The family of this 47-nucleotide RNA from Gracilimonas mengyeensis is "Acido-Lenti-1 RNA". By type it is a small RNA. The family's consensus secondary structure is taken from published work.
[Rfam]
RNA sequence: CCCCCGACUGAAGUCGGGGGCUAUUCAUAUUACAUCCCUUCGGGAUU
Numbered sequence: 001c002c003c004c005c006g007a008c009u010g011a012a013g014u015c016g017g018g019g020g021c022u023a024u025u026c027a028u029a030u031u032a033c034a035u036c037c038c039u040u041c042g043g044g045a046u047u
Base pairs, nucleotide, nucleotide: 001020002019003018004017005016006015007014008013034046035045036044037043038042